[Rfam]
The record is a 226-nucleotide RNA from Amphiprion percula, which matches "Small nucleolar RNA SNORD17" in Rfam.
The snoRNA HBI-43 belongs to the C/D family of snoRNAs, guiding 2'O-ribose methylation at position U3797 of the 28S rRNA. Pseudouridylation in position U3797 is predicted to be guided by the H/ACA snoRNA ACA48.
The literature on the family includes a 2001 paper in EMBO J by Huttenhofer et al., "RNomics: an experimental approach that identifies 201 candidates for novel, small, non-messenger RNAs in mouse".
The family's consensus secondary structure was predicted with RNAalifold.
The organism belongs to Amphiprion, within Eukaryota.
Rfam 15.1 lists 1,015 matches to the family in 568 species.
The family's RNA type in Rfam is C/D-box small nucleolar RNA.
RNA sequence: GUGACGUGAUGAAUCGGUUUAUCCAUUCUCUGAGUGCGGCCGUCUGGUCGCGGUCUCCGCCUCCGCUCCCGUUCUGGGGGCGGGGCCUCUCUGCCGCGGCGCCGGCGUCGUCUCGGCGUUCUGCCCGACGACCCGAAACUUGGCGGAGAGAAAAGACUCGACCGGACCGCAGCCAAGACGAUCUUAUGUUCUGAUCACAUGACCGAGACCGAAGGGAAUUAUUCAU
Numbered sequence: 001g002u003g004a005c006g007u008g009a010u011g012a013a014u015c016g017g018u019u020u021a022u023c024c025a026u027u028c029u030c031u032g033a034g035u036g037c038g039g040c041c042g043u044c045u046g047g048u049c050g051c052g053g054u055c056u057c058c059g060c061c062u063c064c065g066c067u068c069c070c071g072u073u074c075u076g077g078g079g080g081c082g083g084g085g086c087c088u089c090u091c092u093g094c095c096g097c098g099g100c101g102c103c104g105g106c107g108u109c110g111u112c113u114c115g116g117c118g119u120u121c122u123g124c125c126c127g128a129c130g131a132c133c134c135g136a137a138a139c140u141u142g143g144c145g146g147a148g149a150g151a152a153a154a155g156a157c158u159c160g161a162c163c164g165g166a167c168c169g170c171a172g173c174c175a176a177g178a179c180g181a182u183c184u185u186a187u188g189u190u191c192u193g194a195u196c197a198c199a200u201g202a203c204c205g206a207g208a209c210c211g212a213a214g215g216g217a218a219u220u221a222u223u224c225a226u
Stems, first nucleotide, its partner, number of pairs: 010225005017219004023215002026213003030207002034203002038167001040165002042162003046158004054152001055150002059086005065081006090147007104134001107132006115125004